The family of this 107-nucleotide sequence from Terasakiella brassicae is "rpsB sRNA".
Pairs were carried over by alignment from the consensus structure, which is taken from published work.
The family has 4 seed sequences and 245 matches in Rfam 15.1.
NCBI's taxonomy places the organism under Bacteria, Pseudomonadati, Rhodospirillales, Terasakiellaceae, Terasakiella.
It is annotated as a small RNA.
A search with the family's covariance model found it, with a score of 43 bits.
On this family, see Meyer et al., BMC Genomics 2009: "Identification of candidate structured RNAs in the marine organism 'Candidatus Pelagibacter ubique'".

RNA sequence: CACACGUGGAAUUCACGCAAGUGUGGGGAGACAUCCCAUACCUUCGAUCCGGUGUUCGAUUUUCGAACUCUAUCAUUCCACGGAGGAUCAACCGGAAAAGGAAAUGA
Number, nucleotide and partner (000 for none) at each position: 001c085002a000003c083004a000005c082006g081007u080008g079009g078010a077011a076012u000013u000014c000015a000016c046017g045018c000019a000020a000021g000022u000023g000024u038025g037026g000027g035028g000029a000030g000031a000032c000033a000034u000035c027036c000037c025038a024039u000040a000041c000042c000043u000044u000045c017046g016047a000048u000049c000050c000051g000052g000053u000054g068055u067056u066057c065058g064059a063060u000061u000062u000063u059064c058065g057066a056067a055068c054069u000070c000071u000072a000073u000074c000075a000076u011077u010078c009079c008080a007081c006082g005083g003084a000085g001086g000087a000088u000089c000090a000091a000092c000093c000094g000095g000096a000097a000098a000099a000100g000101g000102a000103a000104a000105u000106g000107a000